[Rfam]
RNA: SAM (S-adenosyl methionine) riboswitch aptamer
Organism: Arthrobacter sp. NIO-1057
RNA sequence: CUUCACGAGUUCUGAUCGCUGGCACCACCAUGUGGUGGUUUUGGCAAAGCUCCGACUGAUCAGACACCAACCCCACAGUUGUACGGCGGGUGGUUCGGAUGAAGAAGCGGCCUCGGAUGCAAGAGCGUCACAGGCAAGAACAACAA
Numbered sequence: 001c002u003u004c005a006c007g008a009g010u011u012c013u014g015a016u017c018g019c020u021g022g023c024a025c026c027a028c029c030a031u032g033u034g035g036u037g038g039u040u041u042u043g044g045c046a047a048a049g050c051u052c053c054g055a056c057u058g059a060u061c062a063g064a065c066a067c068c069a070a071c072c073c074c075a076c077a078g079u080u081g082u083a084c085g086g087c088g089g090g091u092g093g094u095u096c097g098g099a100u101g102a103a104g105a106a107g108c109g110g111c112c113u114c115g116g117a118u119g120c121a122a123g124a125g126c127g128u129c130a131c132a133g134g135c136a137a138g139a140a141c142a143a144c145a146a
Stems, first nucleotide, its partner, number of pairs: 001107004009065001011064006021057002066094003071090003076085001110135004116129004